[Rfam]
RNA sequence: AUACCAAAAGUAAAGUGUUUGGGGGGAAGGUUUUUCUGAUAACCUUUACCACCUUGAGCUAUUUGGGAGAUUAAGGACCACACUCCACAGUGGGCUAUAUCACUUAGUAUACAGUCCACUACUAUUCUGUGGCCUACAUG
Numbered sequence: 001a002u003a004c005c006a007a008a009a010g011u012a013a014a015g016u017g018u019u020u021g022g023g024g025g026g027a028a029g030g031u032u033u034u035u036c037u038g039a040u041a042a043c044c045u046u047u048a049c050c051a052c053c054u055u056g057a058g059c060u061a062u063u064u065g066g067g068a069g070a071u072u073a074a075g076g077a078c079c080a081c082a083c084u085c086c087a088c089a090g091u092g093g094g095c096u097a098u099a100u101c102a103c104u105u106a107g108u109a110u111a112c113a114g115u116c117c118a119c120u121a122c123u124a125u126u127c128u129g130u131g132g133c134c135u136a137c138a139u140g
Base pairs, nucleotide, nucleotide: 004066005065006064007063008062013060016057021054022053025050026049028047029044030043031042032041075135076134078132079131080130081129082128089120090119091118092117093116094115095114096113098111099110100109
RNA: Small nucleolar RNA SNORA4
Organism: Tupaia belangeri